[Rfam]
RNA sequence: CACCCAUCAAAAGCGCCAGAGCCUGUAAUGCAAUUGUACUUUACAGGAUGACGAGGAGAGGGAAGAAUCGAAAAUUCGGCGGAUGUCCCUCCGUAUCCCGCGGAUGCGUGACGCGGGCCUUGAAAUAUGCGGGUGACCGCAAAACAAAGAGGCCGCGGCCGCGGAGA
Numbered sequence: 001c002a003c004c005c006a007u008c009a010a011a012a013g014c015g016c017c018a019g020a021g022c023c024u025g026u027a028a029u030g031c032a033a034u035u036g037u038a039c040u041u042u043a044c045a046g047g048a049u050g051a052c053g054a055g056g057a058g059a060g061g062g063a064a065g066a067a068u069c070g071a072a073a074a075u076u077c078g079g080c081g082g083a084u085g086u087c088c089c090u091c092c093g094u095a096u097c098c099c100g101c102g103g104a105u106g107c108g109u110g111a112c113g114c115g116g117g118c119c120u121u122g123a124a125a126u127a128u129g130c131g132g133g134u135g136a137c138c139g140c141a142a143a144a145c146a147a148a149g150a151g152g153c154c155g156c157g158g159c160c161g162c163g164g165a166g167a
Base pairs, nucleotide, nucleotide: 020049022047023046024045025044026043027042058091059090060089061088062087068079069078070077071076092108093107094106095105096104097103112157113156114155115154116153118151128141129140130139131138132137
A member of the RNA family "glmS glucosamine-6-phosphate activated ribozyme aptamer" from Oscillibacter sp. 1-3, 167 nucleotides long. Rfam describes the family as follows. This entry contains a glucosamine-6-phosphate activated ribozyme that is found in the mRNA for GlmS. GlmS is an enzyme that uses fructose-6-phosphate and glutamine to generate glucosamine-6-phosphate. Rfam classes the family as a riboswitch. Taxonomically the source falls in Oscillibacter (Bacteria, Bacillota, Clostridia, Oscillospiraceae). For this family Rfam cites "Control of gene expression by a natural metabolite-responsive ribozyme" (Winkler et al., Nature, 2004).